Shown here is a 177-nucleotide sequence from Sporomusa malonica, a member of the family "Lysine riboswitch aptamer". From the family's description: Riboswitches are metabolite binding domains within certain messenger RNAs that serve as precision sensors for their corresponding targets. Allosteric rearrangement of mRNA structure is mediated by ligand binding, and this results in modulation of gene expression. This family includes riboswitches that sense lysine in a number of genes involved in lysine metabolism, including lysC.
[Rfam]
RNA sequence: UUUUCCGAUAGAGGCGCGGCAGACCAAGAGUAAGUAUGUAGAGCUGGCAGCGAUGACGAUACUGAAAGGGGCUGACCGCCGAAGUGAAAGUUUUGGCCCGGAAACUUUUGCUGGUUUUGCAUUUAAAAGAUGCAAGACUGUCACUUGAAUUGUUUCAGGUGGAGCGCUAUCUUGCAC
Numbered sequence: 001u002u003u004u005c006c007g008a009u010a011g012a013g014g015c016g017c018g019g020c021a022g023a024c025c026a027a028g029a030g031u032a033a034g035u036a037u038g039u040a041g042a043g044c045u046g047g048c049a050g051c052g053a054u055g056a057c058g059a060u061a062c063u064g065a066a067a068g069g070g071g072c073u074g075a076c077c078g079c080c081g082a083a084g085u086g087a088a089a090g091u092u093u094u095g096g097c098c099c100g101g102a103a104a105c106u107u108u109u110g111c112u113g114g115u116u117u118u119g120c121a122u123u124u125a126a127a128a129g130a131u132g133c134a135a136g137a138c139u140g141u142c143a144c145u146u147g148a149a150u151u152g153u154u155u156c157a158g159g160u161g162g163a164g165c166g167c168u169a170u171c172u173u174g175c176a177c
Stems, first nucleotide, its partner, number of pairs: 007171005016079004021073002024070001033063005039058001083112012113139011141162007